[Rfam]
RNA sequence: UCACUUCACAUUCAUUACACAAGCCCUAUAUAGGGCCUGCCGGUUUCGACCGGAUAUGGCGAUAAACGGCCUUGUGUAAUAGAUGCAGCGGACCCGGGGGCAGUACCCGGCGGCUCCACCAAGAUCGGCGCUUUCGCGCCAGUGUUGACGGGGCCGAACCAGGAUCGACGUGUAUUCAAAGACAGGGUUUUUGCCCGGGCUGAGUAACCCGUAAAACUGUUCAAAACCUAUAAGUGCCAACGAUAACGAAGCACUCGCCAUCGCUGCGUAAUUGUCUGGGCUAACGCCCUGCAAUUAUUAGGCUAUACAGCGCGGUUGGACCGACCGGGCAACAGAACGGAUUCCG
Numbered sequence: 001u002c003a004c005u006u007c008a009c010a011u012u013c014a015u016u017a018c019a020c021a022a023g024c025c026c027u028a029u030a031u032a033g034g035g036c037c038u039g040c041c042g043g044u045u046u047c048g049a050c051c052g053g054a055u056a057u058g059g060c061g062a063u064a065a066a067c068g069g070c071c072u073u074g075u076g077u078a079a080u081a082g083a084u085g086c087a088g089c090g091g092a093c094c095c096g097g098g099g100g101c102a103g104u105a106c107c108c109g110g111c112g113g114c115u116c117c118a119c120c121a122a123g124a125u126c127g128g129c130g131c132u133u134u135c136g137c138g139c140c141a142g143u144g145u146u147g148a149c150g151g152g153g154c155c156g157a158a159c160c161a162g163g164a165u166c167g168a169c170g171u172g173u174a175u176u177c178a179a180a181g182a183c184a185g186g187g188u189u190u191u192u193g194c195c196c197g198g199g200c201u202g203a204g205u206a207a208c209c210c211g212u213a214a215a216a217c218u219g220u221u222c223a224a225a226a227c228c229u230a231u232a233a234g235u236g237c238c239a240a241c242g243a244u245a246a247c248g249a250a251g252c253a254c255u256c257g258c259c260a261u262c263g264c265u266g267c268g269u270a271a272u273u274g275u276c277u278g279g280g281c282u283a284a285c286g287c288c289c290u291g292c293a294a295u296u297a298u299u300a301g302g303c304u305a306u307a308c309a310g311c312g313c314g315g316u317u318g319g320a321c322c323g324a325c326c327g328g329g330c331a332a333c334a335g336a337a338c339g340g341a342u343u344c345c346g
Base pairs, nucleotide, nucleotide: 040053041052042051043050058195059194060193061192062191069188070187071186072185073184074183075182084174085173086172088171089170090169094110095109096108097107098106111156112155113154114153115152116151117150196211197210198209199208201223202222203221207218313327314326315325316324318344319343320342322340